[Rfam]
Nucleotides: 077
Stems, first nucleotide, its partner, number of pairs: 002075002006070003010066002014063002017060006028053002
Number, partner (000 for none) and nucleotide at each position: 001000g002075c003074a004000u005000c006070g007069g008068g009000u010066g011065g012000a013000a014063g015062c016000g017060c018059u019058g020057u021056c022055u023000g024000c025000a026000c027000c028053g029052g030000a031000u032000a033000u034000c035000c036000g037000g038000a039000u040000u041000g042000u043000a044000u045000c046000c047000g048000u049000c050000c051000g052029u053028u054000g055022a056021g057020a058019c059018a060017g061000u062015g063014u064000g065011u066010c067000c068008u069007c070006c071000c072000u073000c074003u075002g076000g077000a

mir-1994 microRNA precursor family: a 77-nucleotide RNA sequence from Capitella teleta. Rfam 15.1 lists 26 matches to the family in 16 species. Rfam's curators put it in the seed alignment.